[Rfam]
RNA sequence: GCCCCCGUGGGGUAGCUUGGAUAUCCUUGGGGGCUGCGGACUCCCAGACCCGGGUUCGAAUCCCGGCGGGGGCA
Numbered sequence: 001g002c003c004c005c006c007g008u009g010g011g012g013u014a015g016c017u018u019g020g021a022u023a024u025c026c027u028u029g030g031g032g033g034c035u036g037c038g039g040a041c042u043c044c045c046a047g048a049c050c051c052g053g054g055u056u057c058g059a060a061u062c063c064c065g066g067c068g069g070g071g072g073c074a
Stems, first nucleotide, its partner, number of pairs: 001073007010027003029045005050066005

Shown here is a 74-nucleotide RNA from Archaeoglobus profundus, a member of the family "tRNA". By type it is a transfer RNA.